mir-2774 microRNA precursor family: a 67-nucleotide RNA sequence from Bombyx mori.
The source organism's lineage runs through Eukaryota, Opisthokonta, Ecdysozoa, Hexapoda and Bombyx.
On this family, see Liu et al., BMC Genomics 2010: "MicroRNAs of Bombyx mori identified by Solexa sequencing".
A search with the family's covariance model found it, with a score of 59 bits.
Gene Ontology terms of the family: miRNA-mediated post-transcriptional gene silencing and RISC complex.
RNA sequence: ACUAUACAAGGACAGUCGGACUACCAAGCAAUGUCACUCGCUCGGUACAAGAUCUUCCCUUUAUCGU
Numbered sequence: 001a002c003u004a005u006a007c008a009a010g011g012a013c014a015g016u017c018g019g020a021c022u023a024c025c026a027a028g029c030a031a032u033g034u035c036a037c038u039c040g041c042u043c044g045g046u047a048c049a050a051g052a053u054c055u056u057c058c059c060u061u062u063a064u065c066g067u
Base pairs, nucleotide, nucleotide: 004064005063006062010058011057012056015053016052017051022047023046024045025044027042028041029040